[Rfam]
RNA sequence: GCGCGACCCGUAGGGAGAAGCCGCUUGAAUGCGGUGCCGAAGGAGCAACCGCCCCGGAAACUCUCAGGCAAAAGGACCACGGGUAGACU
Numbered sequence: 001g002c003g004c005g006a007c008c009c010g011u012a013g014g015g016a017g018a019a020g021c022c023g024c025u026u027g028a029a030u031g032c033g034g035u036g037c038c039g040a041a042g043g044a045g046c047a048a049c050c051g052c053c054c055c056g057g058a059a060a061c062u063c064u065c066a067g068g069c070a071a072a073a074g075g076a077c078c079a080c081g082g083g084u085a086g087a088c089u
Stems, first nucleotide, its partner, number of pairs: 006084006013078002021034004036069003039065002043063003049057002
Description: Rfam assigns this 89-nucleotide RNA sequence from Aliirhizobium cellulosilyticum to the family "Glycine riboswitch aptamer".